[Rfam]
RNA: EGFOA RNA
Organism: Patulibacter medicamentivorans
RNA sequence: GAUCUCCCUGACCUUGUGACCGUCCCAGAGCCUUCGGGCUGGGUGGCGCAGAGAAGCCCUCAACGCAGUCAGCGUGUAGGGCAGGUGGUAACGCUGGACCUGGGCGCCUUCGACUCUGCGA
Numbered sequence: 001g002a003u004c005u006c007c008c009u010g011a012c013c014u015u016g017u018g019a020c021c022g023u024c025c026c027a028g029a030g031c032c033u034u035c036g037g038g039c040u041g042g043g044u045g046g047c048g049c050a051g052a053g054a055a056g057c058c059c060u061c062a063a064c065g066c067a068g069u070c071a072g073c074g075u076g077u078a079g080g081g082c083a084g085g086u087g088g089u090a091a092c093g094c095u096g097g098a099c100c101u102g103g104g105c106g107c108c109u110u111c112g113a114c115u116c117u118g119c120g121a
Base pairs, nucleotide, nucleotide: 006104007103008102010100022099023098025097026096027095028094029040030039031038032037047120048119049118050117051116052115053114056082057081058080059079083109084108085107086106087105
Dot-bracket structure: .....[[[.[...........[[.[[[[((((....))))......(((((((..((((...................))))(((((......]]]]]]].]]])))))....))))))).